Source information: The record is an 80-nucleotide RNA from Oryzomonas rubra, which matches "c-di-GMP-I riboswitch aptamer" in Rfam. The base pairs follow the family's consensus structure, which is taken from published work. Taxonomically the source falls in Oryzomonas (Bacteria, Pseudomonadati, Desulfuromonadia, Geobacteraceae).

[Rfam]
Nucleotides: 080
Stems, first nucleotide, its partner, number of pairs: 012037002018031005041073003045070003048065007
Number, partner (000 for none) and nucleotide at each position: 001000u002000c003000a004000u005000c006000g007000a008000a009000g010000a011000g012037g013036c014000a015000a016000a017000a018031c019030c020029a021028g022027g023000g024000u025000a026000a027022c028021c029020u030019g031018g032000c033000g034000a035000c036013g037012c038000a039000a040000a041073g042072c043071u044000a045070c046069c047068u048065g049064u050063c051062c052061a053060g054059u055000u056000u057000c058000g059054a060053c061052u062051g063050g064049a065048u066000a067000g068047a069046g070045g071043g072042g073041c074000c075000g076000c077000c078000g079000a080000a